[Rfam]
RNA: Plastid-ycf2 5UTR RNA
Organism: Triticum aestivum
RNA sequence: GUGCAUCCAGCAGGAAUUGAACCGAUAAAUUUACCAAUUAUGAGUUGGUCGCUUUAACCAUUCAGCUAUGGAUGC
Numbered sequence: 001g002u003g004c005a006u007c008c009a010g011c012a013g014g015a016a017u018u019g020a021a022c023c024g025a026u027a028a029a030u031u032u033a034c035c036a037a038u039u040a041u042g043a044g045u046u047g048g049u050c051g052c053u054u055u056a057a058c059c060a061u062u063c064a065g066c067u068a069u070g071g072a073u074g075c
Stems, first nucleotide, its partner, number of pairs: 003075006010026001013023002040069003044066005051059001
Dot-bracket structure: ..((((((.(..((.......))..).............(((.(((((..(.......)..))))))))))))))